[Rfam]
RNA sequence: GUUGCCAUUAUGAAGUCAGGUGCGGAAACUAUGCACUAGUGGUGCCUGUUGGAUGCUAUGCAAC
Numbered sequence: 001g002u003u004g005c006c007a008u009u010a011u012g013a014a015g016u017c018a019g020g021u022g023c024g025g026a027a028a029c030u031a032u033g034c035a036c037u038a039g040u041g042g043u044g045c046c047u048g049u050u051g052g053a054u055g056c057u058a059u060g061c062a063a064c
Stems, first nucleotide, its partner, number of pairs: 001064005015050001017048007029039003

The record is a 64-nucleotide sequence from Clupea harengus, which matches "Selenocysteine insertion sequence 1" in Rfam. By type it is a cis-regulatory element. It scores 35 bits against the family's covariance model. The family's consensus secondary structure is taken from published work. Rfam links the family to the GO term selenocysteine incorporation.